[Rfam]
RNA sequence: UAUCGCUGCCCUCCUUGGGCGUUUCCUCCCUAGACUCGGGUCGCUUGUUCGACGGGCGGCCCUUUUUCUUUGCGGG
Numbered sequence: 001u002a003u004c005g006c007u008g009c010c011c012u013c014c015u016u017g018g019g020c021g022u023u024u025c026c027u028c029c030c031u032a033g034a035c036u037c038g039g040g041u042c043g044c045u046u047g048u049u050c051g052a053c054g055g056g057c058g059g060c061c062c063u064u065u066u067u068c069u070u071u072g073c074g075g076g
Stems, first nucleotide, its partner, number of pairs: 008020004039061009
A member of the RNA family "Makes More Granules Regulator RNA (mmgR)" from Nitrobacter winogradskyi, 76 nucleotides long. On this family, see Corbino et al., Genome Biol 2005: "Evidence for a second class of S-adenosylmethionine riboswitches and other regulatory RNA motifs in alpha-proteobacteria". Its family is annotated with protein binding, response to nitrogen compound and DNA-templated transcription, termination in the Gene Ontology. From the family's description: SuhB later renamed mmgR (makes more granules regulator) was a putative non-coding RNA found multiple times in the Agrobacterium tumefaciens genome and related alpha-proteobacteria. Rfam 15.1 lists 1,791 matches to the family in 918 species. The pairing is the family consensus, mapped onto this sequence. Taxonomically the source falls in Nitrobacter winogradskyi (Bacteria, Pseudomonadati, Alphaproteobacteria, Hyphomicrobiales).